[Rfam]
RNA sequence: GGCAAACGCAGCCUGUGUCACAUAUUGCCUCGUGUGAUGACACUGUUUUAGUUUGCCAGAUCGAAGAGGUGCGUCGUGUCCGUGUGGUCUUAUCCCUAGCCAAUAGAUUGCAUAGAAUUAGCAUCAAACAUGU
Numbered sequence: 001g002g003c004a005a006a007c008g009c010a011g012c013c014u015g016u017g018u019c020a021c022a023u024a025u026u027g028c029c030u031c032g033u034g035u036g037a038u039g040a041c042a043c044u045g046u047u048u049u050a051g052u053u054u055g056c057c058a059g060a061u062c063g064a065a066g067a068g069g070u071g072c073g074u075c076g077u078g079u080c081c082g083u084g085u086g087g088u089c090u091u092a093u094c095c096c097u098a099g100c101c102a103a104u105a106g107a108u109u110g111c112a113u114a115g116a117a118u119u120a121g122c123a124u125c126a127a128a129c130a131u132g133u
Base pairs, nucleotide, nucleotide: 002056003055004054005053006052007051010048011047014042015041016040017038018037019036020035021034022033023032062132063131066125069124070123071122074120079116080115082113083112084111085110086109087108088107089106091103
The family of this 133-nucleotide RNA from Drosophila ananassae is "Small nucleolar RNA psi18S-841/snoR66".
A search with the family's covariance model found it, with a score of 67 bits.
Its Rfam clan is "SNORA28 clan".
Taxonomically the source falls in ananassae species complex (Eukaryota, Altocrustacea, Allotriocarida, Neoptera).
The family's RNA type in Rfam is H/ACA-box small nucleolar RNA.
Rfam's curators write: psi18S-841 is a member of the H/ACA class of snoRNA. This family is responsible for guiding the modification of uridine 841 in Drosophila 18S rRNA to pseudouridine.
The family's consensus secondary structure was predicted with RNAfold.